Annotation
Shown here is an 85-nucleotide sequence from Clostridium sp. AM58-1XD, a member of the family "Fluoride riboswitch aptamer (crcB RNA motif)".

RNA sequence: AAUAACCACGGGAAUGAGGUUCUCCCAUAGCAUGAAUAAUUAUAAUUGCUAAAACUGCUUAUAAGCUGAUGACUUCUGUAUAACA
Numbered sequence: 001a002a003u004a005a006c007c008a009c010g011g012g013a014a015u016g017a018g019g020u021u022c023u024c025c026c027a028u029a030g031c032a033u034g035a036a037u038a039a040u041u042a043u044a045a046u047u048g049c050u051a052a053a054a055c056u057g058c059u060u061a062u063a064a065g066c067u068g069a070u071g072a073c074u075u076c077u078g079u080a081u082a083a084c085a
Stems, first nucleotide, its partner, number of pairs: 010026004016076006057066003